[Rfam]
RNA sequence: UACAUCCUUCAGGGUUUGGUGAGAUUCCAUACCGGUGGUAAAGCCCACGAGCCGCAAGGCAGAUCUGGUGAAAUUCCAGGGCCGACAGUUAAAGUCUGGAUGAAAGAAGGAAAUU
Numbered sequence: 001u002a003c004a005u006c007c008u009u010c011a012g013g014g015u016u017u018g019g020u021g022a023g024a025u026u027c028c029a030u031a032c033c034g035g036u037g038g039u040a041a042a043g044c045c046c047a048c049g050a051g052c053c054g055c056a057a058g059g060c061a062g063a064u065c066u067g068g069u070g071a072a073a074u075u076c077c078a079g080g081g082c083c084g085a086c087a088g089u090u091a092a093a094g095u096c097u098g099g100a101u102g103a104a105a106g107a108a109g110g111a112a113a114u115u
Stems, first nucleotide, its partner, number of pairs: 005111006017029003031095002033084002035048004043082002051060003064080005086098003